[Rfam]
RNA sequence: GGGUGCAGCGACGGUCGCUGCAGGAUCGAGGAUGGUCGGGCCGCCAUCC
Numbered sequence: 001g002g003g004u005g006c007a008g009c010g011a012c013g014g015u016c017g018c019u020g021c022a023g024g025a026u027c028g029a030g031g032a033u034g035g036u037c038g039g040g041c042c043g044c045c046a047u048c049c
Stems, first nucleotide, its partner, number of pairs: 005021006030049007
The family of this 49-nucleotide RNA from Polyangium spumosum is "nhaA-I RNA". Pairs were carried over by alignment from the consensus structure, which is taken from published work.